Shown here is a 594-nucleotide part of an RNA from uncultured bacterium OMZ60_11L23, a member of the family "Bacterial large subunit ribosomal RNA". Rfam's curators put it in the seed alignment.
RNA sequence: UGGAUGUCUUGGUACCAAAAGCUGAUGAAGGACGUGGCGGGCUGCGAUAAGCUUCGGGGAGCUGCCAAACGAGCUUUGAUCCGGAGAAUUCCGAAUUGGGAAACCUGUCGUAAGAAACACUUGUGUUUCUUUUGGUUCAUACCGCGACAUUAUUAUCUGAAUAAAUAGGGUAAUAAGAGGAACGAAGGGAACUGAAACAUCUAAGUACCUUCAGGAAAAGAAAGAAAAAUCGAUUUCCCCAGUAGCGGCGAGCGAAAAGGAAAGAGCCUAAACUGGCUAUAUGUAAUAACCCUUAUGUGUUGUAUGGUCAGGGUCGAGGGAGUUGCGAGGAGCGAGAUAAGGCUUGCUUAAAAAAACUGUUAUUUCUAGCUGAACAAGCAGGAAAGCUUGGCUAUAAAGGGUGAUAGUCCCGUAAGUGAAAGGAAUAAAAGUUUUUUCUGUAAUUUCCCGAGUAAUGCUGGUCACGUGGAAACCGGCAUGAAUUAAGGAGGACCACCUCCUAAGGCUAAAUACUUUUGGUAACCGAUAGUGAACAAGUAGCGUGAGUGAACGAUGAAAAGAACCCCUUUUAGGGGAGUGAAAUAGAACCUGAAA
Numbered sequence: 001u002g003g004a005u006g007u008c009u010u011g012g013u014a015c016c017a018a019a020a021g022c023u024g025a026u027g028a029a030g031g032a033c034g035u036g037g038c039g040g041g042c043u044g045c046g047a048u049a050a051g052c053u054u055c056g057g058g059g060a061g062c063u064g065c066c067a068a069a070c071g072a073g074c075u076u077u078g079a080u081c082c083g084g085a086g087a088a089u090u091c092c093g094a095a096u097u098g099g100g101a102a103a104c105c106u107g108u109c110g111u112a113a114g115a116a117a118c119a120c121u122u123g124u125g126u127u128u129c130u131u132u133u134g135g136u137u138c139a140u141a142c143c144g145c146g147a148c149a150u151u152a153u154u155a156u157c158u159g160a161a162u163a164a165a166u167a168g169g170g171u172a173a174u175a176a177g178a179g180g181a182a183c184g185a186a187g188g189g190a191a192c193u194g195a196a197a198c199a200u201c202u203a204a205g206u207a208c209c210u211u212c213a214g215g216a217a218a219a220g221a222a223a224g225a226a227a228a229a230u231c232g233a234u235u236u237c238c239c240c241a242g243u244a245g246c247g248g249c250g251a252g253c254g255a256a257a258a259g260g261a262a263a264g265a266g267c268c269u270a271a272a273c274u275g276g277c278u279a280u281a282u283g284u285a286a287u288a289a290c291c292c293u294u295a296u297g298u299g300u301u302g303u304a305u306g307g308u309c310a311g312g313g314u315c316g317a318g319g320g321a322g323u324u325g326c327g328a329g330g331a332g333c334g335a336g337a338u339a340a341g342g343c344u345u346g347c348u349u350a351a352a353a354a355a356a357c358u359g360u361u362a363u364u365u366c367u368a369g370c371u372g373a374a375c376a377a378g379c380a381g382g383a384a385a386g387c388u389u390g391g392c393u394a395u396a397a398a399g400g401g402u403g404a405u406a407g408u409c410c411c412g413u414a415a416g417u418g419a420a421a422g423g424a425a426u427a428a429a430a431g432u433u434u435u436u437u438c439u440g441u442a443a444u445u446u447c448c449c450g451a452g453u454a455a456u457g458c459u460g461g462u463c464a465c466g467u468g469g470a471a472a473c474c475g476g477c478a479u480g481a482a483u484u485a486a487g488g489a490g491g492a493c494c495a496c497c498u499c500c501u502a503a504g505g506c507u508a509a510a511u512a513c514u515u516u517u518g519g520u521a522a523c524c525g526a527u528a529g530u531g532a533a534c535a536a537g538u539a540g541c542g543u544g545a546g547u548g549a550a551c552g553a554u555g556a557a558a559a560g561a562a563c564c565c566c567u568u569u570u571a572g573g574g575g576a577g578u579g580a581a582a583u584a585g586a587a588c589c590u591g592a593a594a
Base pairs, nucleotide, nucleotide: 006589007553008552011524012523013521014520015519016518017517018516019515020514021513022179023178030092031091032090033046034045035044052086053085054084055083056082057081058080061074062073063072098105099104107148108147109146110145111144150176151175152174153173154172155171156170157169158168183214184212185211186210187209188208194201195200224231225230234510235262236261237260238259245253246252265507266506267505268504273311274310275309276308277307278306279305280304281303282302283301318449319448320447323443324442325441326440327439355433356432357431358430360428361427362426363425364424365423366422367421369417370416371415375390376389377388378387379386393397399411400410401409455479456478457477458476459475460474461473462472486501487500488499489498490497540547541546563575564574565573566572